This 81-nucleotide sequence from Novosphingobium kunmingense belongs to the Rfam family "ZMP/ZTP riboswitch aptamer (pfl RNA motif)". It scores 57 bits against the family's covariance model. Pairs were carried over by alignment from the consensus structure, which is taken from published work. Its family is annotated with regulation of purine nucleotide biosynthetic process and one-carbon metabolic process in the Gene Ontology.
[Rfam]
RNA sequence: CGCGCGUCACGUGACUGACGAGGCAGGCGGAGCACCGCCGUGGAGCGUGACCCUCGAAAGCCGCUCGUCUGGGCACUCCCG
Numbered sequence: 001c002g003c004g005c006g007u008c009a010c011g012u013g014a015c016u017g018a019c020g021a022g023g024c025a026g027g028c029g030g031a032g033c034a035c036c037g038c039c040g041u042g043g044a045g046c047g048u049g050a051c052c053c054u055c056g057a058a059a060g061c062c063g064c065u066c067g068u069c070u071g072g073g074c075a076c077u078c079c080c081g
Base pairs, nucleotide, nucleotide: 004053006051007050008049009048010047011046012045015042017069018068019067020066021065027038028037029036030035060074061073062072